[Rfam]
RNA sequence: CGGGUACUGCCCUGUUCGUGAGACGUUACAUUCCAGUGGCCUUAAGCAAAUCCUAGGGAGCUGGCUCUGUUCGAGCCCUGGUUCGUUUAUCUGGCGCCCACCUGUAUAUACAGGUCCCCGGGAAUAAAAAACCGACCGGCAAUGGUGGUCCCGUC
Numbered sequence: 001c002g003g004g005u006a007c008u009g010c011c012c013u014g015u016u017c018g019u020g021a022g023a024c025g026u027u028a029c030a031u032u033c034c035a036g037u038g039g040c041c042u043u044a045a046g047c048a049a050a051u052c053c054u055a056g057g058g059a060g061c062u063g064g065c066u067c068u069g070u071u072c073g074a075g076c077c078c079u080g081g082u083u084c085g086u087u088u089a090u091c092u093g094g095c096g097c098c099c100a101c102c103u104g105u106a107u108a109u110a111c112a113g114g115u116c117c118c119c120g121g122g123a124a125u126a127a128a129a130a131a132c133c134g135a136c137c138g139g140c141a142a143u144g145g146u147g148g149u150c151c152c153g154u155c
Stems, first nucleotide, its partner, number of pairs: 003152002006149006013141003017138002031123004036118001038116004056099003060095005069088001072085005